[Rfam]
A member of the RNA family "Plastid-rps12 3UTR RNA" from Aphyllon fasciculatum, 93 nucleotides long. Rfam describes the family as follows. Plastid rpl20 is a non-coding RNA (ncRNA) recognised in plastids. For this family Rfam cites "Retrograde signaling in plants: A critical review focusing on the GUN pathway and beyond" (Richter et al., Plant Commun, 2023). Rfam 15.1 lists 1,710 matches to the family in 1,426 species. It is annotated as a cis-regulatory element.
RNA sequence: GGUUUCCAUUGAUGUAAAUUUAAUGAAAUUAAAAUGAAAAGCAAUUCUCCAUUGGUAACGAAGGGUUAUUCAUUAAGCGGAGUAAAUCUUAUU
Numbered sequence: 001g002g003u004u005u006c007c008a009u010u011g012a013u014g015u016a017a018a019u020u021u022a023a024u025g026a027a028a029u030u031a032a033a034a035u036g037a038a039a040a041g042c043a044a045u046u047c048u049c050c051a052u053u054g055g056u057a058a059c060g061a062a063g064g065g066u067u068a069u070u071c072a073u074u075a076a077g078c079g080g081a082g083u084a085a086a087u088c089u090u091a092u093u
Stems, first nucleotide, its partner, number of pairs: 009023004047082004051073002054070006